The family of this 63-nucleotide sequence from Anabarilius grahami is "mir-1421 microRNA precursor family". Taxonomically the source falls in Anabarilius (Eukaryota, Metazoa, Teleostomi, Cypriniphysae).

RNA sequence: CGGGUGGGUAGGAUCACUUGCGAUGCAGAGGGCUUUGCAUCGCAAGUGAUCCUACCCACCCGU
Numbered sequence: 001c002g003g004g005u006g007g008g009u010a011g012g013a014u015c016a017c018u019u020g021c022g023a024u025g026c027a028g029a030g031g032g033c034u035u036u037g038c039a040u041c042g043c044a045a046g047u048g049a050u051c052c053u054a055c056c057c058a059c060c061c062g063u
Stems, first nucleotide, its partner, number of pairs: 003060005009054013023040005